[Rfam]
RNA sequence: UAGAUCAUUGAUGAGUACUCUGAGGUGUCCAAACCAAGGAUUUUGACUAACCCCUAUAACUCUGAGGUUUUU
Numbered sequence: 001u002a003g004a005u006c007a008u009u010g011a012u013g014a015g016u017a018c019u020c021u022g023a024g025g026u027g028u029c030c031a032a033a034c035c036a037a038g039g040a041u042u043u044u045g046a047c048u049a050a051c052c053c054c055u056a057u058a059a060c061u062c063u064g065a066g067g068u069u070u071u072u
Stems, first nucleotide, its partner, number of pairs: 002070005
Background
A member of the RNA family "Small nucleolar RNA SNORD113/SNORD114 family" from Bos grunniens, 72 nucleotides long. The family's RNA type in Rfam is C/D-box small nucleolar RNA. The match comes from Rfam's covariance-model search (38 bits). A reference for the family is Cavaille et al. (2002), "Identification of tandemly-repeated C/D snoRNA genes at the imprinted human 14q32 domain reminiscent of those at the Prader-Willi/Angelman syndrome region", Hum Mol Genet. The family has 59 seed sequences and 5,721 matches in Rfam 15.1. The source organism's lineage runs through Eukaryota, Theria, Boreoeutheria, Laurasiatheria and Bos. Rfam links the family to the GO terms nucleolus and RNA processing. Pairs were carried over by alignment from the consensus structure, which is taken from published work.